[Rfam]
RNA sequence: CCAUGACAACAGGGGCGUCCGCAAUGCGCGGGCUGAGAAGCACCCUUUGAACCUGACCCGGAUCAUGCCGGCGGAGGAAGUUGCGGAGAUGAACCC
Numbered sequence: 001c002c003a004u005g006a007c008a009a010c011a012g013g014g015g016c017g018u019c020c021g022c023a024a025u026g027c028g029c030g031g032g033c034u035g036a037g038a039a040g041c042a043c044c045c046u047u048u049g050a051a052c053c054u055g056a057c058c059c060g061g062a063u064c065a066u067g068c069c070g071g072c073g074g075a076g077g078a079a080g081u082u083g084c085g086g087a088g089a090u091g092a093a094c095c096c
Base pairs, nucleotide, nucleotide: 007083008082009081010080011046012045013044014043016040017033018032019031020030021029052077053076054075058071059070060069061068
TPP riboswitch aptamer (THI element): a 96-nucleotide RNA from Rhodobacteraceae bacterium THAF1. A search with the family's covariance model found it, with a score of 66 bits. The family's consensus secondary structure is taken from published work. Vitamin B(1) in its active form thiamin pyrophosphate (TPP) is an essential coenzyme that is synthesised by coupling of pyrimidine and thiazole moieties in bacteria. The previously detected thiamin-regulatory element, thi box was extended, resulting in a new, highly conserved RNA secondary structure, the THI element, which is widely distributed in eubacteria and also occurs in some archaea. Analysis of operon structures identified a large number of new candidate thiamin-regulated genes, mostly transporters, in various prokaryotic organisms. The THI element is a riboswitch that directly binds to TPP to regulate gene expression through a variety of mechanisms in archaea, bacteria and eukaryotes. through a variety of mechanisms in archaea, bacteria and eukaryotes.